[Rfam]
RNA sequence: GAGAGAGGAAGGGCGGCCUCCGGGUCUAUGAUCUGAGGAAAGUCUCCCCACCGUCUGAACACACGAACACCUGUGAAGGGUGUCUGGCGAGAGCCAGGGCUCUGGCACAGAAACGAUACCAAGCCAUGCCAAUGCAAUGAUACCGUAAGGUUGAGGUCGUAUGGAAUGUGGAUGGAACGGCGAAUCCUCGUGGGUGCAAGUCAGAAGUAGGGAUAAGCGGUGUUCAGAACGCCCCCGAAGUUAACGACGCUUAGCCGAAUGCCGCAGCUGCAAAUGCCACAGGCUGUCUUUUUAGUGCCAUGCACUUAAGGGAUCUUUGCAGUAACAGAAGGGAGCUUACUCUCCUCACUC
Numbered sequence: 001g002a003g004a005g006a007g008g009a010a011g012g013g014c015g016g017c018c019u020c021c022g023g024g025u026c027u028a029u030g031a032u033c034u035g036a037g038g039a040a041a042g043u044c045u046c047c048c049c050a051c052c053g054u055c056u057g058a059a060c061a062c063a064c065g066a067a068c069a070c071c072u073g074u075g076a077a078g079g080g081u082g083u084c085u086g087g088c089g090a091g092a093g094c095c096a097g098g099g100c101u102c103u104g105g106c107a108c109a110g111a112a113a114c115g116a117u118a119c120c121a122a123g124c125c126a127u128g129c130c131a132a133u134g135c136a137a138u139g140a141u142a143c144c145g146u147a148a149g150g151u152u153g154a155g156g157u158c159g160u161a162u163g164g165a166a167u168g169u170g171g172a173u174g175g176a177a178c179g180g181c182g183a184a185u186c187c188u189c190g191u192g193g194g195u196g197c198a199a200g201u202c203a204g205a206a207g208u209a210g211g212g213a214u215a216a217g218c219g220g221u222g223u224u225c226a227g228a229a230c231g232c233c234c235c236c237g238a239a240g241u242u243a244a245c246g247a248c249g250c251u252u253a254g255c256c257g258a259a260u261g262c263c264g265c266a267g268c269u270g271c272a273a274a275u276g277c278c279a280c281a282g283g284c285u286g287u288c289u290u291u292u293u294a295g296u297g298c299c300a301u302g303c304a305c306u307u308a309a310g311g312g313a314u315c316u317u318u319g320c321a322g323u324a325a326c327a328g329a330a331g332g333g334a335g336c337u338u339a340c341u342c343u344c345c346u347c348a349c350u351c
Stems, first nucleotide, its partner, number of pairs: 001351003005347005010341002013265005021035005040338003044335005049196004058221001062192005067083005084097005098187002103183001105181002119171003124164006142151002200248003208237001210235002